Rfam assigns this 49-nucleotide sequence from Oculatella sp. LEGE 06141 to the family "Nitrogen stress-induced RNA 1".
[Rfam]
RNA sequence: UGGUAGAUGCACCCUAUAAAUCCCUGGUUACGUGCCAGGGAUUUUUUGU
Numbered sequence: 001u002g003g004u005a006g007a008u009g010c011a012c013c014c015u016a017u018a019a020a021u022c023c024c025u026g027g028u029u030a031c032g033u034g035c036c037a038g039g040g041a042u043u044u045u046u047u048g049u
Stems, first nucleotide, its partner, number of pairs: 002013003021041008
It scores 42 bits against the family's covariance model.